[Rfam]
RNA sequence: UGAUAUAUCAUACAAAAAGCUCGUAUAUCGUCGGUAAUAUGGUCCGAAAGUUUCUACCUGCUAGCCGUAAAUUAGCAGACUACGAGGUAAUGUGUUUUAACA
Numbered sequence: 001u002g003a004u005a006u007a008u009c010a011u012a013c014a015a016a017a018a019g020c021u022c023g024u025a026u027a028u029c030g031u032c033g034g035u036a037a038u039a040u041g042g043u044c045c046g047a048a049a050g051u052u053u054c055u056a057c058c059u060g061c062u063a064g065c066c067g068u069a070a071a072u073u074a075g076c077a078g079a080c081u082a083c084g085a086g087g088u089a090a091u092g093u094g095u096u097u098u099a100a101c102a
Stems, first nucleotide, its partner, number of pairs: 018088001020086006031047004058078007

The record is a 102-nucleotide RNA from Clostridium aciditolerans, which matches "Purine riboswitch aptamer" in Rfam. Lineage of the source: Bacteria > Bacillati > Clostridia > Clostridiaceae > Clostridium. A search with the family's covariance model found it, with a score of 86 bits.